[Rfam]
RNA sequence: ACUUUCCUUGUCUGGGGGUGGAUUGGGCUGUUCAAUGAACGUAUAGUGAGAACAGCCCUGCUAACACUUUACCAACACAACCCGCAUCACCUGGACUAUCUAGUUUAGGCUAUGGUGCAAUUUUUGGAACC
Numbered sequence: 001a002c003u004u005u006c007c008u009u010g011u012c013u014g015g016g017g018g019u020g021g022a023u024u025g026g027g028c029u030g031u032u033c034a035a036u037g038a039a040c041g042u043a044u045a046g047u048g049a050g051a052a053c054a055g056c057c058c059u060g061c062u063a064a065c066a067c068u069u070u071a072c073c074a075a076c077a078c079a080a081c082c083c084g085c086a087u088c089a090c091c092u093g094g095a096c097u098a099u100c101u102a103g104u105u106u107a108g109g110c111u112a113u114g115g116u117g118c119a120a121u122u123u124u125u126g127g128a129a130c131c
Stems, first nucleotide, its partner, number of pairs: 006018004021061001023060001025058001027056007039047002084118006092107006